[Rfam]
Shown here is a 61-nucleotide RNA from Apium graveolens, a member of the family "Plastid-psbN 5UTR RNA". It is annotated as a cis-regulatory element. The family's consensus secondary structure was predicted with LocARNA. NCBI's taxonomy places the organism under Eukaryota, Mesangiospermae, Gunneridae, Apiaceae, Apium. Plastid psbN is a non-coding RNA (ncRNA) recognised in plastids.

RNA sequence: UGCGACACCCAUCAGAGGAGCUGUUCCCCAUUCAGGAUCUACUUUACCAUAUUAUAAAUUU
Number, nucleotide and partner (000 for none) at each position: 001u000002g000003c000004g000005a000006c000007a000008c000009c000010c000011a000012u000013c000014a000015g000016a000017g045018g044019a043020g042021c000022u000023g039024u000025u037026c036027c035028c000029c000030a000031u000032u000033c000034a000035g027036g026037a025038u000039c023040u000041a000042c020043u019044u018045u017046a000047c000048c000049a000050u000051a000052u000053u000054a000055u000056a000057a000058a000059u000060u000061u000